A member of the RNA family "Glycine riboswitch aptamer" from Longimycelium tulufanense, 97 nucleotides long.

RNA sequence: GGAGCCCGAGCGGGAGAGACCCCGACGAUGUGGCGGGGCGCCGAAGGAGCAACCCACUCCCCGGAAUCUCUCAGGCACCCCUGACCGCCGGGCAAGG
Numbered sequence: 001g002g003a004g005c006c007c008g009a010g011c012g013g014g015a016g017a018g019a020c021c022c023c024g025a026c027g028a029u030g031u032g033g034c035g036g037g038g039c040g041c042c043g044a045a046g047g048a049g050c051a052a053c054c055c056a057c058u059c060c061c062c063g064g065a066a067u068c069u070c071u072c073a074g075g076c077a078c079c080c081c082u083g084a085c086c087g088c089c090g091g092g093c094a095a096g097g
Base pairs, nucleotide, nucleotide: 006092007091010088011087012086013085020038021037022036023035040076041075042074043072044071047070048069049068053063
Dot-bracket structure: .....((..((((......((((...........)))).(((((..(((...(.........)....))))).)))........))))..)).....
Its family is annotated with glycine biosynthetic process in the Gene Ontology.